[Rfam]
Rfam assigns this 78-nucleotide sequence from Humidesulfovibrio mexicanus to the family "int-alpA RNA". Lineage of the source: Bacteria > Thermodesulfobacteriota > Desulfovibrionia > Desulfovibrionales > Humidesulfovibrio. About the family: Acidobacteria (1 example), Planctomycetes (1 example), Proteobacteria. The family's RNA type in Rfam is small RNA.
RNA sequence: CCAGGGCCUAGGGGCGGCCUAAUUACCCGCCCCGAAAAGCCGCUACCCUGGCGGCCUGGCCCUGGACUCUACCAGGGG
Numbered sequence: 001c002c003a004g005g006g007c008c009u010a011g012g013g014g015c016g017g018c019c020u021a022a023u024u025a026c027c028c029g030c031c032c033c034g035a036a037a038a039g040c041c042g043c044u045a046c047c048c049u050g051g052c053g054g055c056c057u058g059g060c061c062c063u064g065g066a067c068u069c070u071a072c073c074a075g076g077g078g
Base pairs, nucleotide, nucleotide: 001065002064003063004062005061006060007059008058011033012032013031014030015029016028017027039055040054041053042052043051046078047077048076049075